transfer-messenger RNA: a 377-nucleotide RNA sequence from Geomicrobium halophilum. The literature on the family includes a 1996 paper in RNA by Williams and Bartel, "Phylogenetic analysis of tmRNA secondary structure". The family's RNA type in Rfam is non-coding RNA gene. The family's consensus secondary structure is taken from published work.
RNA sequence: GGGGACGAUACGGAUUCGACAGGGAUAGAUUGAGCUUAUACUGCGAGCCGAGCUAGGCAGUCUCGAAAAAGGCCUACGCCAAUAAUAACUGGCAAAGCUAAAGAAACUUUCGCAGCACCAGCAGCUCCAGCUGCUGCGUAACUGACUGCGGAUCCUUCCUUCCAUCGCCCGUGUGGAAGUCUUGAAGGGUCUCACUCAUAAGCGGGCUACGCUGACCGGCCGCCGUCUGAGGCCGGCAGAGGAGACUUAACAGACUAGCUGCAUGGAAGCCUGUUGCCGGGCUGAAGUGACGGCGAAUGAUAAUACGGUAACUACGCUCGUAGAGGUUUAAGUGGCAAUAUCUCUGGACGCGGGUUCAACUCCCGCCGUCUCCACCA
Numbered sequence: 001g002g003g004g005a006c007g008a009u010a011c012g013g014a015u016u017c018g019a020c021a022g023g024g025a026u027a028g029a030u031u032g033a034g035c036u037u038a039u040a041c042u043g044c045g046a047g048c049c050g051a052g053c054u055a056g057g058c059a060g061u062c063u064c065g066a067a068a069a070a071g072g073c074c075u076a077c078g079c080c081a082a083u084a085a086u087a088a089c090u091g092g093c094a095a096a097g098c099u100a101a102a103g104a105a106a107c108u109u110u111c112g113c114a115g116c117a118c119c120a121g122c123a124g125c126u127c128c129a130g131c132u133g134c135u136g137c138g139u140a141a142c143u144g145a146c147u148g149c150g151g152a153u154c155c156u157u158c159c160u161u162c163c164a165u166c167g168c169c170c171g172u173g174u175g176g177a178a179g180u181c182u183u184g185a186a187g188g189g190u191c192u193c194a195c196u197c198a199u200a201a202g203c204g205g206g207c208u209a210c211g212c213u214g215a216c217c218g219g220c221c222g223c224c225g226u227c228u229g230a231g232g233c234c235g236g237c238a239g240a241g242g243a244g245a246c247u248u249a250a251c252a253g254a255c256u257a258g259c260u261g262c263a264u265g266g267a268a269g270c271c272u273g274u275u276g277c278c279g280g281g282c283u284g285a286a287g288u289g290a291c292g293g294c295g296a297a298u299g300a301u302a303a304u305a306c307g308g309u310a311a312c313u314a315c316g317c318u319c320g321u322a323g324a325g326g327u328u329u330a331a332g333u334g335g336c337a338a339u340a341u342c343u344c345u346g347g348a349c350g351c352g353g354g355u356u357c358a359a360c361u362c363c364c365g366c367c368g369u370c371u372c373c374a375c376c377a
Stems, first nucleotide, its partner, number of pairs: 001373007020346008034333005040327003044320005049065004054076005115137003119133004151191006159179007167207006210241001212239003216235001218233001225256001228253001258294004262289003269282003273312004279304001350366005